[Rfam]
RNA sequence: GGCUGGUCUGAUGGUAGUGGGUUAUCAGAACUUAUUAACAUUAGUGUCACUAAAGUUGGUAUUCGACCCCCACUGCUAAAUUUGACUCACUUUAA
Numbered sequence: 001g002g003c004u005g006g007u008c009u010g011a012u013g014g015u016a017g018u019g020g021g022u023u024a025u026c027a028g029a030a031c032u033u034a035u036u037a038a039c040a041u042u043a044g045u046g047u048c049a050c051u052a053a054a055g056u057u058g059g060u061a062u063u064c065g066a067c068c069c070c071c072a073c074u075g076c077u078a079a080a081u082u083u084g085a086c087u088c089a090c091u092u093u094a095a
Stems, first nucleotide, its partner, number of pairs: 001091002005087004010083002015078001016074006033061003037057002